[Rfam]
RNA sequence: CUUAUCUGCUAGGGGAGUCCGAGAGCCGGGCUGAGAAAAGAACGCGAUGAAGUUCUUUGACCCUUUGAACCUGAUCUGGGUCAUGCCAGCGUAGGGAAGCAGGCAGCGGGAACA
Numbered sequence: 001c002u003u004a005u006c007u008g009c010u011a012g013g014g015g016a017g018u019c020c021g022a023g024a025g026c027c028g029g030g031c032u033g034a035g036a037a038a039a040g041a042a043c044g045c046g047a048u049g050a051a052g053u054u055c056u057u058u059g060a061c062c063c064u065u066u067g068a069a070c071c072u073g074a075u076c077u078g079g080g081u082c083a084u085g086c087c088a089g090c091g092u093a094g095g096g097a098a099g100c101a102g103g104c105a106g107c108g109g110g111a112a113c114a
Stems, first nucleotide, its partner, number of pairs: 006102005011064004016058001017031005038057005070095004076089004
RNA: TPP riboswitch aptamer (THI element)
Organism: Geobacillus kaustophilus